[Rfam]
RNA sequence: CCAAUUAAUGACGAUAAACUCCUGGGUUACAUCCUUGCUGGUCUAGGUCCUGAAUACGGACCCCUAAUCACUUCCAUUACUACCUGUGCUGAUCGGGUUACCAUUGAUGAACUGUAUGGUCACUUACUCCAAACUGAAUC
Numbered sequence: 001c002c003a004a005u006u007a008a009u010g011a012c013g014a015u016a017a018a019c020u021c022c023u024g025g026g027u028u029a030c031a032u033c034c035u036u037g038c039u040g041g042u043c044u045a046g047g048u049c050c051u052g053a054a055u056a057c058g059g060a061c062c063c064c065u066a067a068u069c070a071c072u073u074c075c076a077u078u079a080c081u082a083c084c085u086g087u088g089c090u091g092a093u094c095g096g097g098u099u100a101c102c103a104u105u106g107a108u109g110a111a112c113u114g115u116a117u118g119g120u121c122a123c124u125u126a127c128u129c130c131a132a133a134c135u136g137a138a139u140c
Stems, first nucleotide, its partner, number of pairs: 004139003008135001088108001090106004
Overview
Shown here is a 140-nucleotide RNA from Protea cynaroides, a member of the family "Small nucleolar RNA Z247". The match comes from Rfam's covariance-model search (45 bits). The base pairs follow the family's consensus structure, which was predicted with PFOLD.